RNA sequence: CCAACGUGACAUCCAGUGGGUUGGCCCUCGCUGGCUCUGUCUUAAUGGCUUUUGGAGCUGAGUGUCCUUGAGACAUACAACUCAUGAAGUCUGUUCCUUGCCAUGUCGUUGGAGAUCAAAACUGCCCUCAGUAUCUCUUUUUUUUUUUUUAAGUGAAUUGGUUUGGUGCAGUACACUGUAUAUUCCUUGUGCUUCCCAGAAGUCACUAUGUGACCUUGACUGGGGGGAUAAACCAUACAGUGAACAUCU
Numbered sequence: 001c002c003a004a005c006g007u008g009a010c011a012u013c014c015a016g017u018g019g020g021u022u023g024g025c026c027c028u029c030g031c032u033g034g035c036u037c038u039g040u041c042u043u044a045a046u047g048g049c050u051u052u053u054g055g056a057g058c059u060g061a062g063u064g065u066c067c068u069u070g071a072g073a074c075a076u077a078c079a080a081c082u083c084a085u086g087a088a089g090u091c092u093g094u095u096c097c098u099u100g101c102c103a104u105g106u107c108g109u110u111g112g113a114g115a116u117c118a119a120a121a122c123u124g125c126c127c128u129c130a131g132u133a134u135c136u137c138u139u140u141u142u143u144u145u146u147u148u149u150u151a152a153g154u155g156a157a158u159u160g161g162u163u164u165g166g167u168g169c170a171g172u173a174c175a176c177u178g179u180a181u182a183u184u185c186c187u188u189g190u191g192c193u194u195c196c197c198a199g200a201a202g203u204c205a206c207u208a209u210g211u212g213a214c215c216u217u218g219a220c221u222g223g224g225g226g227g228a229u230a231a232a233c234c235a236u237a238c239a240g241u242g243a244a245c246a247u248c249u
Base pairs, nucleotide, nucleotide: 001112002111003110004109005108006107008041009040010039011038013034014033015032018027019026020025045104046103047102048101054097055096056095057094175241176240177239178238179237180236181235192227193226194225195224196223197222202214203213204212205211
The family of this 249-nucleotide RNA from Stylophora pistillata is "Small nucleolar RNA SNORA73 family". The literature on the family includes a 2002 paper in J Mol Evol by Cervelli et al., "Comparative Structure Analysis of Vertebrate U17 Small Nucleolar RNA (snoRNA)". Rfam's curators write: U17 (SNORA73A and SNORA73B) also known as E1 belongs to the H/ACA class of small nucleolar RNAs (snoRNAs). Vertebrate U17 is intron-encoded and ranges in length from 200-230 nucleotides, longer than most snoRNAs. It is one of the most abundant snoRNAs in human cells and is essential for the cleavage of pre-rRNA within the 5' external transcribed spacer (ETS). This cleavage leads to the formation of 18S rRNA. Regions of the U17 RNA are complementary to rRNA and act as guides for RNA/RNA interactions, although these regions do not seem to be well conserved between organisms.